This 339-nucleotide RNA sequence from Propionivibrio dicarboxylicus belongs to the Rfam family "Betaproteobacteria transfer-messenger RNA". From the family's description: Bacterial tmRNA, also known as 10Sa RNA or SsrA, is named for its dual tRNA and mRNA-like properties. Its role is to liberate the mRNA from a stalled ribosome. To accomplish this part of the tmRNA is used as a reading frame that ends in a translation stop signal. Gene Ontology term of the family: RNA catabolic process. It scores 263 bits against the family's covariance model.
[Rfam]
RNA sequence: CGGCGGGCUGCCCUUGAAAUUCGGACGGUCAGGCCCCAUACUUGGCGACAUGGUUGUAAUUCCGGCAAUCUGGAAGCGCUUCGGACGCGGGUUCGAUUCCCGCCACCUCCACCUAAGCGCAUUGCGGCAAGACAGCGUCGUGUUCUUAGGUGGGGGUGCACCGGUUUCGACGGGGUGAGUGAAGGAAAGCAGGCAACUCGUCAGGCGAUCGACGUUAAUGAAGCAAAUCUCCAAACGCCAACGAUGAGCGUUUCGCACUGGCCGCUUAAGGCCUAUGCCGAGGCUGCUUGAGCCUUGUUACCAAAGAAAAGCCGGCGGGGACUUCGGUCCCCGUCGUCA
Numbered sequence: 001c002g003g004c005g006g007g008c009u010g011c012c013c014u015u016g017a018a019a020u021u022c023g024g025a026c027g028g029u030c031a032g033g034c035c036c037c038a039u040a041c042u043u044g045g046c047g048a049c050a051u052g053g054u055u056g057u058a059a060u061u062c063c064g065g066c067a068a069u070c071u072g073g074a075a076g077c078g079c080u081u082c083g084g085a086c087g088c089g090g091g092u093u094c095g096a097u098u099c100c101c102g103c104c105a106c107c108u109c110c111a112c113c114u115a116a117g118c119g120c121a122u123u124g125c126g127g128c129a130a131g132a133c134a135g136c137g138u139c140g141u142g143u144u145c146u147u148a149g150g151u152g153g154g155g156g157u158g159c160a161c162c163g164g165u166u167u168c169g170a171c172g173g174g175g176u177g178a179g180u181g182a183a184g185g186a187a188a189g190c191a192g193g194c195a196a197c198u199c200g201u202c203a204g205g206c207g208a209u210c211g212a213c214g215u216u217a218a219u220g221a222a223g224c225a226a227a228u229c230u231c232c233a234a235a236c237g238c239c240a241a242c243g244a245u246g247a248g249c250g251u252u253u254c255g256c257a258c259u260g261g262c263c264g265c266u267u268a269a270g271g272c273c274u275a276u277g278c279c280g281a282g283g284c285u286g287c288u289u290g291a292g293c294c295u296u297g298u299u300a301c302c303a304a305a306g307a308a309a310a311g312c313c314g315g316c317g318g319g320g321a322c323u324u325c326g327g328u329c330c331c332c333g334u335c336g337u338c339a
Base pairs, nucleotide, nucleotide: 052198053197054196055195056194062193063192065190066189069185070184071183077177078176079175080174081173082172083171087103088102089101090100091099104158105157106156107155108154109153110152111151112150113149114148199214200213201212202211281295282294283293284292286312287311288310289309315334316333317332318331319330320329321328322327